[Rfam]
RNA sequence: GCUGCGGGACGGCCCGCAGCUUCCAGCCCCAUUUGCAGGACGGCCUGC
Numbered sequence: 001g002c003u004g005c006g007g008g009a010c011g012g013c014c015c016g017c018a019g020c021u022u023c024c025a026g027c028c029c030c031a032u033u034u035g036c037a038g039g040a041c042g043g044c045c046u047g048c
Stems, first nucleotide, its partner, number of pairs: 001020008035048005
The family of this 48-nucleotide RNA from Hydrogenophaga aromaticivorans is "Guanidine-II riboswitch aptamer (mini-ykkC)". The base pairs follow the family's consensus structure, which is taken from published work. The family has 72 seed sequences and 1,589 matches in Rfam 15.1. A search with the family's covariance model found it, with a score of 40 bits.